[Rfam]
RNA sequence: CCAGUUCGUUGGGGAACGAACCUCCUCCCUCGUUCCCUGCGAUUAGGUGCCCCACAAACCUCCUCCCUUGUGUGGCACCAUCAACUAAGGCGCCCGUCGACCUCCUCCCCGACGGGCGCUUUUU
Numbered sequence: 001c002c003a004g005u006u007c008g009u010u011g012g013g014g015a016a017c018g019a020a021c022c023u024c025c026u027c028c029c030u031c032g033u034u035c036c037c038u039g040c041g042a043u044u045a046g047g048u049g050c051c052c053c054a055c056a057a058a059c060c061u062c063c064u065c066c067c068u069u070g071u072g073u074g075g076c077a078c079c080a081u082c083a084a085c086u087a088a089g090g091c092g093c094c095c096g097u098c099g100a101c102c103u104c105c106u107c108c109c110c111g112a113c114g115g116g117c118g119c120u121u122u123u124u
Stems, first nucleotide, its partner, number of pairs: 007041003011037005046079006053072003090119010

Background: A member of the RNA family "Alphaproteobacterial ar14" from Kaistia sp. 32K, 124 nucleotides long. Rfam classes the family as a small RNA. NCBI's taxonomy places the organism under Bacteria, Alphaproteobacteria, Hyphomicrobiales, Kaistiaceae, Kaistia.